[Rfam]
Nucleotides: 084
Base pairs, nucleotide, nucleotide: 006023007022008021009020010019046078047077048076049075050074051073
Number, partner (000 for none) and nucleotide at each position: 001000u002000c003000c004000a005000a006023g007022g008021g009020g010019u011000c012000u013000g014000c015000g016000a017000a018000c019010g020009c021008c022007c023006c024000g025000u026000g027000a028000g029000g030000c031000u032000u033000c034000g035000g036000c037000c038000c039000a040000a041000g042000u043000u044000u045000c046078g047077c048076g049075u050074c051073c052000u053000a054000g055000u056000u057000a058000a059000c060000c061000c062000c063000c064000a065000a066000c067000a068000u069000g070000g071000g072000a073051g074050g075049a076048c077047g078046c079000g080000a081000c082000a083000u084000g

About this RNA
This 84-nucleotide RNA from Planktotalea frisia belongs to the Rfam family "chrB-a RNA". The match comes from Rfam's covariance-model search (72 bits). It is annotated as a cis-regulatory element.